[Rfam]
RNA sequence: UUCUGUAAAUGGCUACCCCGGCCGAAAGGCCGUGGACGCAAAGAUACCGGUCUAAGGGGCAUGGGCCCUAUGACAGCGGGUUUGCCGGA
Numbered sequence: 001u002u003c004u005g006u007a008a009a010u011g012g013c014u015a016c017c018c019c020g021g022c023c024g025a026a027a028g029g030c031c032g033u034g035g036a037c038g039c040a041a042a043g044a045u046a047c048c049g050g051u052c053u054a055a056g057g058g059g060c061a062u063g064g065g066c067c068c069u070a071u072g073a074c075a076g077c078g079g080g081u082u083u084g085c086c087g088g089a
Base pairs, nucleotide, nucleotide: 012039013038017034019032020031021030022029023028042083043082044081045080047079048078049077050074051073052072057068058067059066060065

This 89-nucleotide sequence from Sulfuricaulis limicola belongs to the Rfam family "c-di-GMP-I riboswitch aptamer". Lineage of the source: Bacteria > Pseudomonadati > Pseudomonadota > Acidiferrobacterales > Sulfuricaulis. Its family is annotated with cyclic-di-GMP binding in the Gene Ontology. A search with the family's covariance model found it, with a score of 69 bits.